[Rfam]
RNA sequence: GGGACAGACCGCCUUAUCGCCGUUUUGUUCCCGAUAGCUAUCGGGACAAGAAGGAGGAAAGUCCGGACACCACAGAGAAGCAUAGCGGGUAACACCCGUCAUUCGCCGCGGCGAAUAGGACAAGUGCAACAGAAAGUAUGUACAGGUAAUGCUGUAGUGAAACCAGGUAAACUCUAUGCGGUGAAAUACCAAGUAUAUCAGCAUUUAAGGGUUUCUCGUCCGUUGUUGAAGGGUAGGUAGCUUGAUCUUGUUGGUAACAACAAGGCUAGAUAAAUGAUAAGGGUUCGCCUCGGCGAAUACAGAAUCCGGCUUAUAGGUCUGUUUUUUUU
Numbered sequence: 001g002g003g004a005c006a007g008a009c010c011g012c013c014u015u016a017u018c019g020c021c022g023u024u025u026u027g028u029u030c031c032c033g034a035u036a037g038c039u040a041u042c043g044g045g046a047c048a049a050g051a052a053g054g055a056g057g058a059a060a061g062u063c064c065g066g067a068c069a070c071c072a073c074a075g076a077g078a079a080g081c082a083u084a085g086c087g088g089g090u091a092a093c094a095c096c097c098g099u100c101a102u103u104c105g106c107c108g109c110g111g112c113g114a115a116u117a118g119g120a121c122a123a124g125u126g127c128a129a130c131a132g133a134a135a136g137u138a139u140g141u142a143c144a145g146g147u148a149a150u151g152c153u154g155u156a157g158u159g160a161a162a163c164c165a166g167g168u169a170a171a172c173u174c175u176a177u178g179c180g181g182u183g184a185a186a187u188a189c190c191a192a193g194u195a196u197a198u199c200a201g202c203a204u205u206u207a208a209g210g211g212u213u214u215c216u217c218g219u220c221c222g223u224u225g226u227u228g229a230a231g232g233g234u235a236g237g238u239a240g241c242u243u244g245a246u247c248u249u250g251u252u253g254g255u256a257a258c259a260a261c262a263a264g265g266c267u268a269g270a271u272a273a274a275u276g277a278u279a280a281g282g283g284u285u286c287g288c289c290u291c292g293g294c295g296a297a298u299a300c301a302g303a304a305u306c307c308g309g310c311u312u313a314u315a316g317g318u319c320u321g322u323u324u325u326u327u328u329u
Base pairs, nucleotide, nucleotide: 001325002324003323004322005321006320007319008318009317010316011314012282013281014280015279016278017277018276020054021053023051024050025049026048027047028046029045030044031043059312060311061310063309064308065307066306067305068183069182070181071180075217076216077215078214080179081178082177083176084175085099086098087097088096089095100118101116102115103114104113105112106111119174120173124172125171126168127167141156142155143154144153145152187239188238189237190236198229199228200227201226202225209221210220211219212218246265247264248263249262250261251260252259253258